[Rfam]
A member of the RNA family "Group II catalytic intron D1-D4-2" from Alkaliphilus metalliredigens, 118 nucleotides long. Group II introns are found in rRNA, tRNA and mRNA of organelles in fungi, plants and protists, and also in mRNA in bacteria. Pairs were carried over by alignment from the consensus structure.
RNA sequence: GAAGGUCGGUCCUUCGAAAUCGGUAUGCAGAUACGGGUUUCAAACUGCCCAUAGGUGCUGUAGAUUAAUGUCUUCGGUAUUGAGCGUUAUGGGAAAAAGGCUGUAUAAACAGUCAAGU
Numbered sequence: 001g002a003a004g005g006u007c008g009g010u011c012c013u014u015c016g017a018a019a020u021c022g023g024u025a026u027g028c029a030g031a032u033a034c035g036g037g038u039u040u041c042a043a044a045c046u047g048c049c050c051a052u053a054g055g056u057g058c059u060g061u062a063g064a065u066u067a068a069u070g071u072c073u074u075c076g077g078u079a080u081u082g083a084g085c086g087u088u089a090u091g092g093g094a095a096a097a098a099g100g101c102u103g104u105a106u107a108a109a110c111a112g113u114c115a116a117g118u
Stems, first nucleotide, its partner, number of pairs: 001015005016041006023034004045117002048093005053087001054081002057078003062073003099114006